[Rfam]
RNA sequence: CCCUCUCUCAGGUUCUGGCACGACCUUCGGAAUAGCCAGAACCUUUAGCCGACCUUAACCGGUCGGCUCUUUUUU
Numbered sequence: 001c002c003c004u005c006u007c008u009c010a011g012g013u014u015c016u017g018g019c020a021c022g023a024c025c026u027u028c029g030g031a032a033u034a035g036c037c038a039g040a041a042c043c044u045u046u047a048g049c050c051g052a053c054c055u056u057a058a059c060c061g062g063u064c065g066g067c068u069c070u071u072u073u074u075u
Stems, first nucleotide, its partner, number of pairs: 010044010024030002047068008
This 75-nucleotide RNA sequence from Paraburkholderia lacunae belongs to the Rfam family "Burkholderia sRNA 54".
A search with the family's covariance model found it, with a score of 58 bits.
On this family, see Sass et al., Sci Rep 2017: "Identification of small RNAs abundant in Burkholderia cenocepacia biofilms reveal putative regulators with a potential role in carbon and iron metabolism".
The family's RNA type in Rfam is small RNA.
About the family: Identified by RNA-seq, RACE and Northern blot. Strongly expressed in biofilm.